[Rfam]
RNA sequence: AGUAGAAAAGUUGGUGCUUAGACCACGCCCUCUACCGUAAUAAUAGAUAAAUAGGCG
Numbered sequence: 001a002g003u004a005g006a007a008a009a010g011u012u013g014g015u016g017c018u019u020a021g022a023c024c025a026c027g028c029c030c031u032c033u034a035c036c037g038u039a040a041u042a043a044u045a046g047a048u049a050a051a052u053a054g055g056c057g
Stems, first nucleotide, its partner, number of pairs: 002035005012025004026057004
The family of this 57-nucleotide RNA from Crinivirus flavisolani is "3'-terminal pseudoknot in PYVV". The source organism's lineage runs through Viruses, Riboviria, Kitrinoviricota, Martellivirales and Crinivirus flavisolani. The sequence is in the family's curated seed alignment.